[Rfam]
RNA sequence: UGGGUAAAUCCAAUGCAGUAAUUUAUUUAGUGGAAGAACUGCCAUUUUCCUACUAAAAGAAAAGCUAUAUUGAUUUUGAUUUUUGCCUUUAAGGAUAAAAUCAUGACAGCUUGACAUGGACAAUU
Numbered sequence: 001u002g003g004g005u006a007a008a009u010c011c012a013a014u015g016c017a018g019u020a021a022u023u024u025a026u027u028u029a030g031u032g033g034a035a036g037a038a039c040u041g042c043c044a045u046u047u048u049c050c051u052a053c054u055a056a057a058a059g060a061a062a063a064g065c066u067a068u069a070u071u072g073a074u075u076u077u078g079a080u081u082u083u084u085g086c087c088u089u090u091a092a093g094g095a096u097a098a099a100a101u102c103a104u105g106a107c108a109g110c111u112u113g114a115c116a117u118g119g120a121c122a123a124u125u
Stems, first nucleotide, its partner, number of pairs: 001052004016041004022035003065119004070114004077103007086094003
Dot-bracket structure: ((((...........((((..(((........)))..)))).......))))............((((.((((...(((((((..(((...)))..))))))).......)))).))))......
RNA: Small nucleolar RNA SNORA69